[Rfam]
RNA sequence: GUCACAGGUGAUGCGGCGCCACGAGCGCAGCAUCGUAUGCGCAAUACCAAAACAAUGACGGUAGAAAAG
Numbered sequence: 001g002u003c004a005c006a007g008g009u010g011a012u013g014c015g016g017c018g019c020c021a022c023g024a025g026c027g028c029a030g031c032a033u034c035g036u037a038u039g040c041g042c043a044a045u046a047c048c049a050a051a052a053c054a055a056u057g058a059c060g061g062u063a064g065a066a067a068a069g
Stems, first nucleotide, its partner, number of pairs: 009035006016028004
RNA: sucC RNA
Organism: Pseudomonas sp. HAR-UPW-AIA-41